This 151-nucleotide RNA sequence from Sulfitobacter mediterraneus belongs to the Rfam family "FMN riboswitch aptamer (RFN element)".
Rfam's curators write: The RFN element is a highly conserved domain that is found frequently in the 5'-untranslated regions of prokaryotic mRNAs that encode for flavin mononucleotide (FMN) biosynthesis and transport proteins.
A reference for the family is Vitreschak et al. (2002), "Regulation of riboflavin biosynthesis and transport genes in bacteria by transcriptional and translational attenuation", Nucleic Acids Res.
Lineage of the source: Bacteria > Pseudomonadati > Pseudomonadota > Alphaproteobacteria > Sulfitobacter.

[Rfam]
RNA sequence: CGCCAUUCUCAGGGCGGGGCGAAAUUCCCCACCGGCGGUAUGCAGGGCACGACCCCGCGAGCCCGCGAGCGCAACUCCCGCUAGGGGUUGGUCAGCAGAUCUGGUGAGAUGCCAGAGCCGACGGUCAUAGUCCGGAUGAAAGAGAAUGCGU
Numbered sequence: 001c002g003c004c005a006u007u008c009u010c011a012g013g014g015c016g017g018g019g020c021g022a023a024a025u026u027c028c029c030c031a032c033c034g035g036c037g038g039u040a041u042g043c044a045g046g047g048c049a050c051g052a053c054c055c056c057g058c059g060a061g062c063c064c065g066c067g068a069g070c071g072c073a074a075c076u077c078c079c080g081c082u083a084g085g086g087g088u089u090g091g092u093c094a095g096c097a098g099a100u101c102u103g104g105u106g107a108g109a110u111g112c113c114a115g116a117g118c119c120g121a122c123g124g125u126c127a128u129a130g131u132c133c134g135g136a137u138g139a140a141a142g143a144g145a146a147u148g149c150g151u
Base pairs, nucleotide, nucleotide: 004148005147006146007145008144009143010142017029018028019027031131032130033120034119035066036065037064038063061118062117069096070095100116101115102114103113104112122134123133124132
Record summary
Pairs were carried over by alignment from the consensus structure, which is taken from published work.